[Rfam]
Rfam assigns this 114-nucleotide RNA sequence from Danionella cerebrum to the family "Potassium channel RNA editing signal". It scores 108 bits against the family's covariance model.
RNA sequence: GUGGGUUAUGGUGACAUGUGCCCUAUCACUCUAGGUGGUAAGAUUGUGGGCACUCUGUGUGCCAUUGCGGGGGUGCUGACCAUUGCCUUGCCAGUGCCGGUUAUUGUCUCAAAU
Numbered sequence: 001g002u003g004g005g006u007u008a009u010g011g012u013g014a015c016a017u018g019u020g021c022c023c024u025a026u027c028a029c030u031c032u033a034g035g036u037g038g039u040a041a042g043a044u045u046g047u048g049g050g051c052a053c054u055c056u057g058u059g060u061g062c063c064a065u066u067g068c069g070g071g072g073g074u075g076c077u078g079a080c081c082a083u084u085g086c087c088u089u090g091c092c093a094g095u096g097c098c099g100g101u102u103a104u105u106g107u108c109u110c111a112a113a114u
Base pairs, nucleotide, nucleotide: 001114002113005110008107009106010105011104013102014101015100018097019096020095021094037077038076039075040074049063050062051061
Rfam describes the family as follows. This family represents a group of sequences related to the human potassium channel Kv1.1 hairpin element which directs the efficient modification of an adenosine to inosine by an adenosine deaminase acting on RNA (ADAR).